[Rfam]
The record is a 175-nucleotide sequence from Sinomonas atrocyanea, which matches "M-box riboswitch aptamer (ykoK leader)" in Rfam. The match comes from Rfam's covariance-model search (106 bits). M-box riboswitch, also know as ykoK leader is described as a metaloregulatory RNA that sense divalent metals and function as a genetic control element of genes related to divalent metal transport in bacteria.
RNA sequence: GGUGCCGUUCGUUAGCUGAGGCUCCUUCGCGGACACAAGCCAGCGACCCCCAACGUCGAGAGACGCCACAGGUCAGGACAGGCUGCCCCGGGCUAAGGGGCAACCCCGAUUGGCUCUCCGGGUCCUCCCCGGGGUCACGACGCGAAGUGCCAAAGGUCUUACGAGGAAGGGCCCG
Numbered sequence: 001g002g003u004g005c006c007g008u009u010c011g012u013u014a015g016c017u018g019a020g021g022c023u024c025c026u027u028c029g030c031g032g033a034c035a036c037a038a039g040c041c042a043g044c045g046a047c048c049c050c051c052a053a054c055g056u057c058g059a060g061a062g063a064c065g066c067c068a069c070a071g072g073u074c075a076g077g078a079c080a081g082g083c084u085g086c087c088c089c090g091g092g093c094u095a096a097g098g099g100g101c102a103a104c105c106c107c108g109a110u111u112g113g114c115u116c117u118c119c120g121g122g123u124c125c126u127c128c129c130c131g132g133g134g135u136c137a138c139g140a141c142g143c144g145a146a147g148u149g150c151c152a153a154a155g156g157u158c159u160u161a162c163g164a165g166g167a168a169g170g171g172c173c174c175g
Base pairs, nucleotide, nucleotide: 005171006170008168009167010166011162012161013096015157016156017155020151021150022149025147026146027145028144029143030142031141039114040113041112042111043110045074046073047072048071054065055064056063057062081105082104084102087099088098089097116134117133118132119131120130121129122128